[Rfam]
RNA sequence: GCAUGACAAGCGCAAGACAGGUAGAGGUCGUUUCUUAAACGGCAGCCCGUAUGGGUGGAUUCCUCGGUUCUUGGGGUCACUUAAUUC
Numbered sequence: 001g002c003a004u005g006a007c008a009a010g011c012g013c014a015a016g017a018c019a020g021g022u023a024g025a026g027g028u029c030g031u032u033u034c035u036u037a038a039a040c041g042g043c044a045g046c047c048c049g050u051a052u053g054g055g056u057g058g059a060u061u062c063c064u065c066g067g068u069u070c071u072u073g074g075g076g077u078c079a080c081u082u083a084a085u086u087c
Base pairs, nucleotide, nucleotide: 001082004079005078006077007076011074013073014072015071016070021068022067024065025064026063027043028042029041030040031039032038033037046055047054048053
The record is an 87-nucleotide RNA sequence, which matches "DUF3800-VII RNA" in Rfam. The family's RNA type in Rfam is small RNA. It is one of the family's seed sequences.